[Rfam]
RNA sequence: GACGGACGCGCGGGAGAAGGUCGAGCCCCAGUUCGGCCGCCGAAGGAGCAACCGCCCCGGAAACUCUCAGGUCCAAGGACCGCGCGUUCGAC
Dot-bracket structure: .....((((((((......((((..........)))).(((((..(((...((.....))...))))).))).......)))))))).....
This 92-nucleotide sequence from Sphingomonas sp. AP4-R1 belongs to the Rfam family "Glycine riboswitch aptamer". It scores 60 bits against the family's covariance model. Its family is annotated with glycine biosynthetic process in the Gene Ontology.